[Rfam]
RNA sequence: AAAGUAAGUCGGGCAACCGCCGGUGCGGCGUGGGGACGCUGCACGGGAGGAAAGUCCGAGCUCCACAGGGCAGGGUGCCGGAUAACGUCCGGCGGGAGCGAUCCUAGGGAAAGUGCCACAGAAAUGCAGACCGCCGAUGGCGGCCGGCAUCCGCCGGCCGCACAGGCAAGGGUGCAACGGUGCGGUAAGAGCGCACCAGCAGCCUGGAGACAGGCUGGCUAGGUAAACCCCACCCGGAGCAAGACCAGGUAGGAGUGCAUAUGUGGUGGCCCGCCACGCACUCGGGUAGGUCGCUUGAGCCGGCUGGCAACAGUCGGCCUAGAUAGAUGGUUGCCACUCCAUAUCGUGCGAGGCCGUGGUUCCGCUUGUUGGAACAGGCCGUUUGCAGCACGCGGAGGACAGAACUCGGCUUACAGACUUGCUUUCUCU
Numbered sequence: 001a002a003a004g005u006a007a008g009u010c011g012g013g014c015a016a017c018c019g020c021c022g023g024u025g026c027g028g029c030g031u032g033g034g035g036a037c038g039c040u041g042c043a044c045g046g047g048a049g050g051a052a053a054g055u056c057c058g059a060g061c062u063c064c065a066c067a068g069g070g071c072a073g074g075g076u077g078c079c080g081g082a083u084a085a086c087g088u089c090c091g092g093c094g095g096g097a098g099c100g101a102u103c104c105u106a107g108g109g110a111a112a113g114u115g116c117c118a119c120a121g122a123a124a125u126g127c128a129g130a131c132c133g134c135c136g137a138u139g140g141c142g143g144c145c146g147g148c149a150u151c152c153g154c155c156g157g158c159c160g161c162a163c164a165g166g167c168a169a170g171g172g173u174g175c176a177a178c179g180g181u182g183c184g185g186u187a188a189g190a191g192c193g194c195a196c197c198a199g200c201a202g203c204c205u206g207g208a209g210a211c212a213g214g215c216u217g218g219c220u221a222g223g224u225a226a227a228c229c230c231c232a233c234c235c236g237g238a239g240c241a242a243g244a245c246c247a248g249g250u251a252g253g254a255g256u257g258c259a260u261a262u263g264u265g266g267u268g269g270c271c272c273g274c275c276a277c278g279c280a281c282u283c284g285g286g287u288a289g290g291u292c293g294c295u296u297g298a299g300c301c302g303g304c305u306g307g308c309a310a311c312a313g314u315c316g317g318c319c320u321a322g323a324u325a326g327a328u329g330g331u332u333g334c335c336a337c338u339c340c341a342u343a344u345c346g347u348g349c350g351a352g353g354c355c356g357u358g359g360u361u362c363c364g365c366u367u368g369u370u371g372g373a374a375c376a377g378g379c380c381g382u383u384u385g386c387a388g389c390a391c392g393c394g395g396a397g398g399a400c401a402g403a404a405c406u407c408g409g410c411u412u413a414c415a416g417a418c419u420u421g422c423u424u425u426c427u428c429u
Stems, first nucleotide, its partner, number of pairs: 001425010011414001012335007020047002023044008052412003056409005061239004068272004073235005078092005093107001094105004108230002113228002115224003131171002133167003138162002179197006199219001200217007243292004253283006263277005299318008
Shown here is a 429-nucleotide RNA from Paenalicyclobacillus cellulosilyticus, a member of the family "Bacterial RNase P class A".
It is annotated as a ribozyme.
It scores 304 bits against the family's covariance model.